About this RNA
A member of the RNA family "Acido-Lenti-1 RNA" from Desulfonema ishimotonii, 45 nucleotides long. The family's RNA type in Rfam is small RNA.
RNA sequence: CCCAGGCCGUUGGCCUAGGCUAUAAUAUUUCGCCCUUUCAGGGCG
Number, nucleotide and partner (000 for none) at each position: 001c019002c018003c000004a016005g015006g014007c013008c012009g000010u000011u000012g008013g007014c006015c005016u004017a000018g002019g001020c000021u000022a000023u000024a000025a000026u000027a000028u000029u000030u000031c000032g044033c043034c042035c041036u040037u000038u000039c000040a036041g035042g034043g033044c032045g000